[Rfam]
RNA sequence: UUCUGAAGGGGAAAGGUUAUAGCGAUUAUGAUAUAGUGUAACCAUAAGCGUAUAGCUUUUCCCCUUUGGCG
Number, nucleotide and partner (000 for none) at each position: 001u000002u000003c069004u068005g067006a066007a065008g000009g063010g062011g061012a000013a059014a058015g000016g000017u055018u054019a053020u052021a051022g000023c000024g000025a000026u047027u046028a045029u044030g043031a000032u000033a000034u000035a000036g000037u000038g000039u000040a000041a000042c000043c030044a029045u028046a027047a026048g000049c000050g000051u021052a020053u019054a018055g017056c000057u000058u014059u013060u000061c011062c010063c009064c000065u007066u006067u005068g004069g003070c000071g000
Rfam assigns this 71-nucleotide RNA sequence from Microctonus hyperodae to the family "mir-965 microRNA precursor family". For this family Rfam cites "The regulation of silkworm fibroin L chain production by miRNA-965 and miRNA-1926 in insect cells" (Huang et al., Bioorg Khim, 2012). Rfam 15.1 lists 224 matches to the family in 178 species. Gene Ontology terms of the family: RISC complex and miRNA-mediated post-transcriptional gene silencing. A search with the family's covariance model found it, with a score of 67 bits.